[Rfam]
Nucleotides: 087
Stems, first nucleotide, its partner, number of pairs: 004052001007049006015041002017075005026037004064082005
Number, partner (000 for none) and nucleotide at each position: 001000u002000u003000g004052c005000c006000u007049c008048g009047u010046c011045g012044c013000g014000a015041c016040u017075g018074g019073c020072g021071u022000u023000g024000a025000g026037g027036u028035g029034g030000g031000c032000c033000a034029c035028c036027a037026c038000c039000g040016g041015g042000g043000a044012g045011c046010g047009a048008c049007g050000c051000u052004g053000a054000c055000c056000u057000a058000c059000g060000g061000a062000u063000u064082c065081g066080g067079c068078c069000g070000u071021a072020c073019g074018c075017c076000u077000g078068g079067g080066c081065c082064g083000a084000u085000a086000c087000g

The family of this 87-nucleotide RNA sequence from Gryllotalpicola protaetiae is "ZMP/ZTP riboswitch aptamer (pfl RNA motif)". The source organism's lineage runs through Bacteria, Bacillati, Actinomycetota, Micrococcales and Gryllotalpicola.